[Rfam]
RNA sequence: UUACUGGACGCUUCAGCUAUUGAACUGUUAUGUCAUUCUCUGACAGAGAACUAUUUGUUCUUUGACAAAGAGAAUGGCAAAACAGUGCAAUAGCUAAAGCGUCCACUAAC
Dot-bracket structure: (((.((....(((.((((((((.((((((.(((((.............(((.....)))...))))).)............))))).)))))))).)))....)).))).
mir-8517 microRNA precursor family: a 110-nucleotide sequence from Plutella xylostella. The family's consensus secondary structure was predicted with RNAalifold. Its family is annotated with miRNA-mediated post-transcriptional gene silencing and RISC complex in the Gene Ontology.